[Rfam]
RNA sequence: UGAACCCCGCCUGGGUAAACGCUAGCCACGUGCCCAGUAUCGAGUGUUGCAGCGGCUGUAUAAGACCUUUGGUCGAAGUCGCCGCUUCCGCGUGCACCUAAAGUUAGUGAGGAUGGAGCGAUCGUAGGUGGCCCUGCGACGUUGAAUGGAAUUAGCCCCGAAAUUUGGUAACUGUUGGAUCUUGCCCAAGGUUUGUUCACGUCUGAAGGCAAUAUCGUUUGCAGUAUUAGUGGCAAGCUGCAAGGGAAGACCCGGGGUCGGCGGCCC
Numbered sequence: 001u002g003a004a005c006c007c008c009g010c011c012u013g014g015g016u017a018a019a020c021g022c023u024a025g026c027c028a029c030g031u032g033c034c035c036a037g038u039a040u041c042g043a044g045u046g047u048u049g050c051a052g053c054g055g056c057u058g059u060a061u062a063a064g065a066c067c068u069u070u071g072g073u074c075g076a077a078g079u080c081g082c083c084g085c086u087u088c089c090g091c092g093u094g095c096a097c098c099u100a101a102a103g104u105u106a107g108u109g110a111g112g113a114u115g116g117a118g119c120g121a122u123c124g125u126a127g128g129u130g131g132c133c134c135u136g137c138g139a140c141g142u143u144g145a146a147u148g149g150a151a152u153u154a155g156c157c158c159c160g161a162a163a164u165u166u167g168g169u170a171a172c173u174g175u176u177g178g179a180u181c182u183u184g185c186c187c188a189a190g191g192u193u194u195g196u197u198c199a200c201g202u203c204u205g206a207a208g209g210c211a212a213u214a215u216c217g218u219u220u221g222c223a224g225u226a227u228u229a230g231u232g233g234c235a236a237g238c239u240g241c242a243a244g245g246g247a248a249g250a251c252c253c254g255g256g257g258u259c260g261g262c263g264g265c266c267c
Base pairs, nucleotide, nucleotide: 012036013035014034015033019031020030021029023236025234026233038102040100044097045096046095047094048092049091152261155258156257157256158255159254160253178252180250181249182248183247184210185209186208189204190203191202192201215246216245218244219243220242221241222240223239224238225237

Source information: This 267-nucleotide RNA sequence from Roseimaritima multifibrata belongs to the Rfam family "Group II catalytic intron D1-D4-6". Rfam 15.1 lists 1,617 matches to the family in 661 species. Taxonomically the source falls in Roseimaritima (Bacteria, Pseudomonadati, Planctomycetota, Pirellulaceae). The base pairs follow the family's consensus structure. The match comes from Rfam's covariance-model search (72 bits).